[Rfam]
RNA sequence: UACUCUAUUCCCAGCUGGACCUUUGCUGGUUUUCACCUCGGUUAUAUUUCAAUUAUGAUUAUCAUCGGGUGAGCAUCGGUGUAGGUCCAAACCUGCUCC
Numbered sequence: 001u002a003c004u005c006u007a008u009u010c011c012c013a014g015c016u017g018g019a020c021c022u023u024u025g026c027u028g029g030u031u032u033u034c035a036c037c038u039c040g041g042u043u044a045u046a047u048u049u050c051a052a053u054u055a056u057g058a059u060u061a062u063c064a065u066c067g068g069g070u071g072a073g074c075a076u077c078g079g080u081g082u083a084g085g086u087c088c089a090a091a092c093c094u095g096c097u098c099c
Stems, first nucleotide, its partner, number of pairs: 016089007024081007032073006039067001041065002044062003